[Rfam]
RNA sequence: UUGCCGGUGAAAGUCCGGUCCGGGUAACCGCCAGGGGGCCCGGUAGCAGGCUGGCGGCCUCGUUUGGUAACGGAUGGGGUCGAAGCCCAGCGUCGAACAUCCCUGUUGAGGGGGUGUGCAACCGAACGGUCCGUAACGUGA
Numbered sequence: 001u002u003g004c005c006g007g008u009g010a011a012a013g014u015c016c017g018g019u020c021c022g023g024g025u026a027a028c029c030g031c032c033a034g035g036g037g038g039c040c041c042g043g044u045a046g047c048a049g050g051c052u053g054g055c056g057g058c059c060u061c062g063u064u065u066g067g068u069a070a071c072g073g074a075u076g077g078g079g080u081c082g083a084a085g086c087c088c089a090g091c092g093u094c095g096a097a098c099a100u101c102c103c104u105g106u107u108g109a110g111g112g113g114g115u116g117u118g119c120a121a122c123c124g125a126a127c128g129g130u131c132c133g134u135a136a137c138g139u140g141a
Stems, first nucleotide, its partner, number of pairs: 020043005050091005055082006064073001066071001099115006118134002
A member of the RNA family "Group II catalytic intron D1-D4-4" from Phytoactinopolyspora halotolerans, 141 nucleotides long. Rfam's curators write: Group II introns are found in rRNA, tRNA and mRNA of organelles in fungi, plants and protists, and also in mRNA in bacteria. Taxonomically the source falls in Phytoactinopolyspora (Bacteria, Bacillati, Jiangellales, Jiangellaceae). It scores 109 bits against the family's covariance model. The literature on the family includes a 2001 paper in EMBO J by Chu et al., "Control of branch-site choice by a group II intron".